RNA sequence: AGUGACAAGAAGGAGCAUCCGCUUCUCACCUAGUUGACUAACGUUGACGGGUACGACGAUUAACCGACUGAGUGUAAUAUACCUAUGGUUAGAGUUAAUGCGGAUGAUUUAUUCAUCCGCAUUUUUUGUUGCUU
Numbered sequence: 001a002g003u004g005a006c007a008a009g010a011a012g013g014a015g016c017a018u019c020c021g022c023u024u025c026u027c028a029c030c031u032a033g034u035u036g037a038c039u040a041a042c043g044u045u046g047a048c049g050g051g052u053a054c055g056a057c058g059a060u061u062a063a064c065c066g067a068c069u070g071a072g073u074g075u076a077a078u079a080u081a082c083c084u085a086u087g088g089u090u091a092g093a094g095u096u097a098a099u100g101c102g103g104a105u106g107a108u109u110u111a112u113u114c115a116u117c118c119g120c121a122u123u124u125u126u127u128g129u130u131g132c133u134u
Stems, first nucleotide, its partner, number of pairs: 011026006028052003034047005099121009

The record is a 134-nucleotide RNA from Desulfuribacillus stibiiarsenatis, which matches "Ribosomal protein L20 leader" in Rfam. Pairs were carried over by alignment from the consensus structure, which was predicted with CMfinder. NCBI's taxonomy places the organism under Bacteria, Bacillati, Bacillota, Desulfuribacillales, Desulfuribacillus. Its family is annotated with regulation of gene expression in the Gene Ontology. Rfam classes the family as a cis-regulatory leader.